Rfam assigns this 102-nucleotide RNA sequence from Mikania micrantha to the family "Small nucleolar RNA Z122". On this family, see Chen et al., Nucleic Acids Res 2003: "The high diversity of snoRNAs in plants: identification and comparative study of 120 snoRNA genes from Oryza sativa". Rfam links the family to the GO terms RNA processing and nucleolus. The organism belongs to Mikania, within Eukaryota.
RNA sequence: UUUGUGAAAUGAUGCUAAAGAUAUCAAAUCAUGUGUCAUAGGCGCAAACUGAUAUGUGCUCUGCUGAACGGAUUACUAUUUGCACGUCAGUCUGAUCACAAA
Numbered sequence: 001u002u003u004g005u006g007a008a009a010u011g012a013u014g015c016u017a018a019a020g021a022u023a024u025c026a027a028a029u030c031a032u033g034u035g036u037c038a039u040a041g042g043c044g045c046a047a048a049c050u051g052a053u054a055u056g057u058g059c060u061c062u063g064c065u066g067a068a069c070g071g072a073u074u075a076c077u078a079u080u081u082g083c084a085c086g087u088c089a090g091u092c093u094g095a096u097c098a099c100a101a102a
Stems, first nucleotide, its partner, number of pairs: 001102007